[Rfam]
A member of the RNA family "MIR2617 microRNA precursor family" from Medicago truncatula, 89 nucleotides long.
It scores 62 bits against the family's covariance model.
Taxonomically the source falls in Medicago (Eukaryota, Streptophyta, Magnoliopsida, Gunneridae).
RNA sequence: AUGUAAUGUGACAUGCCCGUUUUUGGGAUAUACUAUGAUGUGUUUAUUUAUUAUUUAUUUGCUUUGGGGUAACGGGGUGUUACAUUUUC
Numbered sequence: 001a002u003g004u005a006a007u008g009u010g011a012c013a014u015g016c017c018c019g020u021u022u023u024u025g026g027g028a029u030a031u032a033c034u035a036u037g038a039u040g041u042g043u044u045u046a047u048u049u050a051u052u053a054u055u056u057a058u059u060u061g062c063u064u065u066g067g068g069g070u071a072a073c074g075g076g077g078u079g080u081u082a083c084a085u086u087u088u089c
Base pairs, nucleotide, nucleotide: 003088005086006085007084008083009082010081011080012079013078014077016076017075018074019073020072021071